The record is an 84-nucleotide RNA from Piliocolobus tephrosceles, which matches "mir-548 microRNA precursor family" in Rfam. For this family Rfam cites "Ultra-high throughput sequencing-based small RNA discovery and discrete statistical biomarker analysis in a collection of cervical tumours and matched controls" (Witten et al., BMC Biol, 2010). Lineage of the source: Eukaryota > Metazoa > Amniota > Theria > Piliocolobus.
RNA sequence: CAUUAGGUUGGUGCAAAAGUCAUUGAGGUUUUUGCCAUUAAAAGCAAUGGCAAAAACCACAAUGACUUUUGCACCAACCUAAUG
Numbered sequence: 001c002a003u004u005a006g007g008u009u010g011g012u013g014c015a016a017a018a019g020u021c022a023u024u025g026a027g028g029u030u031u032u033u034g035c036c037a038u039u040a041a042a043a044g045c046a047a048u049g050g051c052a053a054a055a056a057c058c059a060c061a062a063u064g065a066c067u068u069u070u071g072c073a074c075c076a077a078c079c080u081a082a083u084g
Stems, first nucleotide, its partner, number of pairs: 001084025027058013
Dot-bracket structure: (((((((((((((((((((((((((.(((((((((((((......))))))))))))).)))))))))))))))))))))))))